[Rfam]
RNA: Purine riboswitch aptamer
Organism: Bdellovibrio sp.
RNA sequence: GGUACGAAUAAGCAGUCCCCAGUUAUAAGCGAGUGAUAUGGUCUCGCGUUUCUACCAGGCCCCGUAAAUGCCUGUCUAAAUGGAGUAAUAAUGAAAGC
Number, nucleotide and partner (000 for none) at each position: 001g000002g000003u000004a000005c000006g000007a000008a000009u000010a000011a000012g000013c000014a000015g000016u000017c000018c000019c083020c082021a081022g000023u079024u078025a077026u000027a000028a000029g047030c046031g045032a044033g043034u000035g000036a000037u000038a000039u000040g000041g000042u000043c033044u032045c031046g030047c029048g000049u000050u000051u000052c000053u000054a000055c000056c074057a073058g072059g071060c070061c000062c000063c000064g000065u000066a000067a000068a000069u000070g060071c059072c058073u057074g056075u000076c000077u025078a024079a023080a000081u021082g020083g019084a000085g000086u000087a000088a000089u000090a000091a000092u000093g000094a000095a000096a000097g000098c000